[Rfam]
This 107-nucleotide RNA from Clostridium sp. DL-VIII belongs to the Rfam family "SAM riboswitch aptamer (S box leader)". NCBI's taxonomy places the organism under Bacteria, Bacillati, Bacillota, Clostridia, Clostridium. The SAM riboswitch is found upstream of a number of genes which code for proteins involved in methionine or cysteine biosynthesis in Gram-positive bacteria. The base pairs follow the family's consensus structure, which is taken from published work.
RNA sequence: AACUUAUCAAGAGUGGUGGAGGGACUGGCCCCGUGAAACCCGGCAACCGAUUAUAAAAUACAAAUAAUUAGGUGCCAAAUCCUGCAGUUUAGGCUGAAAGAUAAGAG
Numbered sequence: 001a002a003c004u005u006a007u008c009a010a011g012a013g014u015g016g017u018g019g020a021g022g023g024a025c026u027g028g029c030c031c032c033g034u035g036a037a038a039c040c041c042g043g044c045a046a047c048c049g050a051u052u053a054u055a056a057a058a059u060a061c062a063a064a065u066a067a068u069u070a071g072g073u074g075c076c077a078a079a080u081c082c083u084g085c086a087g088u089u090u091a092g093g094c095u096g097a098a099a100g101a102u103a104a105g106a107g
Stems, first nucleotide, its partner, number of pairs: 003105006013041001015040003021031003025084001027082002042076004047072002049068001051066001080099001085096004